[Rfam]
Group II catalytic intron D1-D4-6: a 282-nucleotide RNA from Desulfonema magnum.

RNA sequence: AAAGUCUCUGCCGGAUAAGGUCCGGCCAGCCGCCCGUACCGAGUGUCGCGUGCGGUCAGGACGGGCAUACCGUCGAACGACCCGUAUGAAGCGUUACAGGCCACAGGGGGAGGAACGUCGCUCCCCUGAAGCAUGUUAACACAUCGUCAAGACUAAAAAUGCAGACGGCGGCGUUCUUAACGCAACGGAAGCCAACACAAAGGAAUCGUUAGAAGCACUGCAAAGCUUGCUUUAGCUUUGAUCGGGCGAGAUUCCGGAUGGGCUGCCGGUGUCCGCAGGGCG
Number, nucleotide and partner (000 for none) at each position: 001a000002a000003a000004g000005u000006c000007u000008c000009u000010g000011c000012c036013g035014g034015a000016u000017a000018a000019g031020g030021u029022c000023c000024g000025g000026c000027c000028a000029g021030c020031c019032g000033c000034c014035c013036g012037u000038a000039c100040c099041g000042a000043g097044u096045g095046u000047c093048g092049c088050g087051u086052g085053c084054g083055g082056u000057c000058a000059g078060g000061a000062c000063g000064g000065g000066c000067a000068u000069a000070c000071c000072g000073u000074c000075g000076a000077a000078c059079g000080a000081c000082c055083c054084g053085u052086a051087u050088g049089a000090a000091g000092c048093g047094u000095u045096a044097c043098a000099g040100g039101c000102c000103a000104c000105a000106g000107g000108g000109g000110g000111a000112g000113g000114a000115a000116c000117g000118u000119c000120g000121c000122u000123c000124c000125c000126c000127u000128g000129a000130a000131g000132c000133a000134u000135g000136u000137u000138a000139a000140c000141a272142c271143a270144u269145c268146g267147u000148c000149a000150a000151g000152a000153c000154u000155a000156a000157a000158a000159a000160u000161g266162c265163a264164g263165a000166c261167g193168g192169c191170g000171g000172c187173g186174u185175u184176c000177u000178u000179a000180a000181c000182g000183c000184a175185a174186c173187g172188g000189a000190a000191g169192c168193c167194a000195a000196c000197a000198c260199a259200a000201a000202g255203g254204a253205a252206u251207c250208g000209u000210u000211a000212g000213a000214a000215g000216c000217a000218c000219u000220g000221c000222a000223a000224a000225g000226c000227u000228u000229g000230c000231u000232u000233u000234a000235g000236c000237u000238u000239u000240g000241a000242u000243c000244g000245g000246g000247c000248g000249a000250g207251a206252u205253u204254c203255c202256g000257g000258a000259u199260g198261g166262g000263c164264u163265g162266c161267c146268g145269g144270u143271g142272u141273c000274c000275g000276c000277a000278g000279g000280g000281c000282g000
The family has 174 seed sequences and 1,617 matches in Rfam 15.1.